[Rfam]
RNA sequence: UAAUCUGACUAGAACAAAUUCUCAUCUAGUUGUGGCAGACCCACACUUGAUUGCUCGACUACAUAAUUAACAUUGAAAAACAAAGACCAUUUAUUAUGUGAAUAGUGAUUUUUUAAGAUU
Number, nucleotide and partner (000 for none) at each position: 001u000002a000003a000004u118005c117006u116007g000008a113009c000010u000011a000012g109013a000014a106015c105016a000017a000018a000019u101020u000021c000022u000023c098024a097025u096026c000027u093028a092029g091030u000031u089032g000033u000034g000035g000036c000037a000038g000039a000040c000041c000042c000043a000044c000045a000046c000047u000048u000049g000050a000051u000052u000053g000054c000055u000056c000057g000058a000059c000060u000061a000062c000063a000064u000065a000066a000067u000068u000069a000070a000071c000072a000073u000074u000075g000076a000077a000078a000079a000080a000081c000082a000083a000084a000085g000086a000087c000088c000089a031090u000091u029092u028093a027094u000095u000096a025097u024098g023099u000100g000101a019102a000103u000104a000105g015106u014107g000108a000109u012110u000111u000112u000113u008114u000115a000116a006117g005118a004119u000120u000

Shown here is a 120-nucleotide sequence from Salix brachista, a member of the family "MIR480 microRNA precursor family".
A reference for the family is Lu et al. (2005), "Novel and mechanical stress-responsive MicroRNAs in Populus trichocarpa that are absent from Arabidopsis", Plant Cell.
Gene Ontology terms of the family: RISC complex and miRNA-mediated post-transcriptional gene silencing.
The family has 69 seed sequences and 3,070 matches in Rfam 15.1.